[Rfam]
RNA: Pestivirus internal ribosome entry site (IRES) including 5'UTR SLI
Organism: Orthopestivirus bovis
RNA sequence: AUGUAUACGAGAAUUUGCCUAACCUCGUAUACAUAUUGGGCAUUCUAAAAAUAAAUUAGGCCUAAGGGACAAAUCCUCCUUAGCGAAGGCCGAAAAGAGGCUAGCCAUGCCCUUAGUAGGACUAGCAAAACAAGGAGGGUAGCAACAGUGGUGAGUUCGUUGGAUGGCUGAAGCCCUGAGUACAGGGUAGUCGUCAGUGGUUCGACGCUUCGUGUGACAAGCCUCGAGGUGCCACGUGGACGAGGGCAUGCCCACAGCACAUCUUAACCUGAGCGGGGGUCGUUCAGGUGAAAGCGGUUUAACCAACCGCUACGAAUACAGCCUGAUAGGGUGCUGCAGAGGCCCACUGUAUUGCUACUAAAAAUCUCUGCUGUACAUGGCAC
Numbered sequence: 001a002u003g004u005a006u007a008c009g010a011g012a013a014u015u016u017g018c019c020u021a022a023c024c025u026c027g028u029a030u031a032c033a034u035a036u037u038g039g040g041c042a043u044u045c046u047a048a049a050a051a052u053a054a055a056u057u058a059g060g061c062c063u064a065a066g067g068g069a070c071a072a073a074u075c076c077u078c079c080u081u082a083g084c085g086a087a088g089g090c091c092g093a094a095a096a097g098a099g100g101c102u103a104g105c106c107a108u109g110c111c112c113u114u115a116g117u118a119g120g121a122c123u124a125g126c127a128a129a130a131c132a133a134g135g136a137g138g139g140u141a142g143c144a145a146c147a148g149u150g151g152u153g154a155g156u157u158c159g160u161u162g163g164a165u166g167g168c169u170g171a172a173g174c175c176c177u178g179a180g181u182a183c184a185g186g187g188u189a190g191u192c193g194u195c196a197g198u199g200g201u202u203c204g205a206c207g208c209u210u211c212g213u214g215u216g217a218c219a220a221g222c223c224u225c226g227a228g229g230u231g232c233c234a235c236g237u238g239g240a241c242g243a244g245g246g247c248a249u250g251c252c253c254a255c256a257g258c259a260c261a262u263c264u265u266a267a268c269c270u271g272a273g274c275g276g277g278g279g280u281c282g283u284u285c286a287g288g289u290g291a292a293a294g295c296g297g298u299u300u301a302a303c304c305a306a307c308c309g310c311u312a313c314g315a316a317u318a319c320a321g322c323c324u325g326a327u328a329g330g331g332u333g334c335u336g337c338a339g340a341g342g343c344c345c346a347c348u349g350u351a352u353u354g355c356u357a358c359u360a361a362a363a364a365u366c367u368c369u370g371c372u373g374u375a376c377a378u379g380g381c382a383c
Stems, first nucleotide, its partner, number of pairs: 003032009076137006083126002088123002090120002095114003099111003138359007145350007152320002155317006162264005167258004173188006191243005197235005202227004207222004244253003267289010295309005321332004334373001336371006